MIR1435 microRNA precursor family: a 200-nucleotide sequence from Brachypodium distachyon.
RNA sequence: UAGCUUUGUCCUAAGUCAAUCUUCUUAAAGUUUGACCAAGUUUAUAGAAAAAAGUACUAAUAUCUACAAUAACAAAUUAGUAUACUAUGAAGAUAUAUAUCAUGACAGAUUUAAUAGAACUAAUUUAGAGUUGUAGAUGUUGGUGGAUUUUUCUACAAACUUGGUCAAACUUUAAGAAGUUUGACUUAGGACAAAGGUAG
Numbered sequence: 001u002a003g004c005u006u007u008g009u010c011c012u013a014a015g016u017c018a019a020u021c022u023u024c025u026u027a028a029a030g031u032u033u034g035a036c037c038a039a040g041u042u043u044a045u046a047g048a049a050a051a052a053a054g055u056a057c058u059a060a061u062a063u064c065u066a067c068a069a070u071a072a073c074a075a076a077u078u079a080g081u082a083u084a085c086u087a088u089g090a091a092g093a094u095a096u097a098u099a100u101c102a103u104g105a106c107a108g109a110u111u112u113a114a115u116a117g118a119a120c121u122a123a124u125u126u127a128g129a130g131u132u133g134u135a136g137a138u139g140u141u142g143g144u145g146g147a148u149u150u151u152u153c154u155a156c157a158a159a160c161u162u163g164g165u166c167a168a169a170c171u172u173u174a175a176g177a178a179g180u181u182u183g184a185c186u187u188a189g190g191a192c193a194a195a196g197g198u199a200g
Base pairs, nucleotide, nucleotide: 005195006194007193008192009191011189012188013187014186015185016184017183018182019181021179022178023177024176025175026174031169032168033167034166035165045155046154047153048152049151050150051149052148055145056144057143059141060140061139062138063137064136065135066134067133068132074126075125076124077123078122079121080120081119

Gene Ontology terms of the family: miRNA-mediated post-transcriptional gene silencing and RISC complex.